Annotation
This 73-nucleotide RNA sequence from Alligator sinensis belongs to the Rfam family "Mammalian CPEB3 ribozyme". The mammalian CPEB3 ribozyme is a self cleaving RNA located in the second intron of the CPEB3 gene which belongs to a family of genes regulating messenger RNA polyadenylation. Lineage of the source: Eukaryota > Gnathostomata > Teleostomi > Alligatorinae > Alligator. A search with the family's covariance model found it, with a score of 50 bits.
RNA sequence: UGUUCUAUAGUCAGGGCCAUAGCAGAAAUGUUCAGGUCAUGACCCCUGUCAGGCAAUACCUGUGAAUUCUGCU
Numbered sequence: 001u002g003u004u005c006u007a008u009a010g011u012c013a014g015g016g017c018c019a020u021a022g023c024a025g026a027a028a029u030g031u032u033c034a035g036g037u038c039a040u041g042a043c044c045c046c047u048g049u050c051a052g053g054c055a056a057u058a059c060c061u062g063u064g065a066a067u068u069c070u071g072c073u
Stems, first nucleotide, its partner, number of pairs: 014045003018041001021073007028040003050062004